[Rfam]
RNA sequence: CUUCGAUUGCAUGACUGGCGGAUAGUGGGUGACCACAAGGGAGUGCAAUCGCUAUGUCAGCCGACCGCCUGGGCAUUCUAU
Numbered sequence: 001c002u003u004c005g006a007u008u009g010c011a012u013g014a015c016u017g018g019c020g021g022a023u024a025g026u027g028g029g030u031g032a033c034c035a036c037a038a039g040g041g042a043g044u045g046c047a048a049u050c051g052c053u054a055u056g057u058c059a060g061c062c063g064a065c066c067g068c069c070u071g072g073g074c075a076u077u078c079u080a081u
Base pairs, nucleotide, nucleotide: 004051005050006049007048008047009046010045011044012043015040016039017069018068019067020066021065025036026035027034028033060074061073062072
The family of this 81-nucleotide RNA from Paenalicyclobacillus ferrooxydans is "ZMP/ZTP riboswitch aptamer (pfl RNA motif)".
A search with the family's covariance model found it, with a score of 66 bits.
The family's consensus secondary structure is taken from published work.